[Rfam]
RNA: Bacterial RNase P class A
RNA sequence: CGAGUUCGCUAGACAAUCGCCGGCAUCAGCCGGAGGAAAGUCCGGGCUCCAUAGGGCAGAAUGCUGGGUAACGCCCAGGCAGUGCGAACUGACGGAAAGUGCCACAGAAAAUAUACCGCCUCUUUGAGGUAAGGGUGAAAUGGUGCGGUAAGAGCGCACCGCGCUUUUGGCAACAAAAGUGGCAGGGCAAACCCCAUUCGGAGCAAGAUCAAAUAGGAAACCUUUGCGGCUGCCCGUCGCGGUUUCGGGUAGAUCGCUACAGGCGGUGAGUAAUCAGCGUCGCAGAGGAAUGAUUGUCCACGACAGAACCCGGCUUAUCGGCGAACUCUUUUU
Numbered sequence: 001c002g003a004g005u006u007c008g009c010u011a012g013a014c015a016a017u018c019g020c021c022g023g024c025a026u027c028a029g030c031c032g033g034a035g036g037a038a039a040g041u042c043c044g045g046g047c048u049c050c051a052u053a054g055g056g057c058a059g060a061a062u063g064c065u066g067g068g069u070a071a072c073g074c075c076c077a078g079g080c081a082g083u084g085c086g087a088a089c090u091g092a093c094g095g096a097a098a099g100u101g102c103c104a105c106a107g108a109a110a111a112u113a114u115a116c117c118g119c120c121u122c123u124u125u126g127a128g129g130u131a132a133g134g135g136u137g138a139a140a141u142g143g144u145g146c147g148g149u150a151a152g153a154g155c156g157c158a159c160c161g162c163g164c165u166u167u168u169g170g171c172a173a174c175a176a177a178a179g180u181g182g183c184a185g186g187g188c189a190a191a192c193c194c195c196a197u198u199c200g201g202a203g204c205a206a207g208a209u210c211a212a213a214u215a216g217g218a219a220a221c222c223u224u225u226g227c228g229g230c231u232g233c234c235c236g237u238c239g240c241g242g243u244u245u246c247g248g249g250u251a252g253a254u255c256g257c258u259a260c261a262g263g264c265g266g267u268g269a270g271u272a273a274u275c276a277g278c279g280u281c282g283c284a285g286a287g288g289a290a291u292g293a294u295u296g297u298c299c300a301c302g303a304c305a306g307a308a309c310c311c312g313g314c315u316u317a318u319c320g321g322c323g324a325a326c327u328c329u330u331u332u333u
Stems, first nucleotide, its partner, number of pairs: 002328009011318001012298007020033005038316003042313005047203004054235004059199005064078005079093001080091004094194002099192002101188003116134002118130005142160006161183001162181008207255004217246006226240005262281004267276003